RNA sequence: UCGAAGUUCCAUCUGUAAACGGAUAAGAUUUACAUCUUAGUGUAUACGAGUUAAUGAAAGUAAGUAAAGGAGCAAUAAACAAUUUCGUCUUUUAUUAAGACGGUUGGUAUUGCUCCUUU
Numbered sequence: 001u002c003g004a005a006g007u008u009c010c011a012u013c014u015g016u017a018a019a020c021g022g023a024u025a026a027g028a029u030u031u032a033c034a035u036c037u038u039a040g041u042g043u044a045u046a047c048g049a050g051u052u053a054a055u056g057a058a059a060g061u062a063a064g065u066a067a068a069g070g071a072g073c074a075a076u077a078a079a080c081a082a083u084u085u086c087g088u089c090u091u092u093u094a095u096u097a098a099g100a101c102g103g104u105u106g107g108u109a110u111u112g113c114u115c116c117u118u119u
Stems, first nucleotide, its partner, number of pairs: 008023003012019001066119012081104001085100002088097001
Background
The record is a 119-nucleotide RNA sequence, which matches "Plastid-psbA-1 3UTR RNA" in Rfam. Rfam classes the family as a cis-regulatory element. Pairs were carried over by alignment from the consensus structure, which was predicted with LocARNA.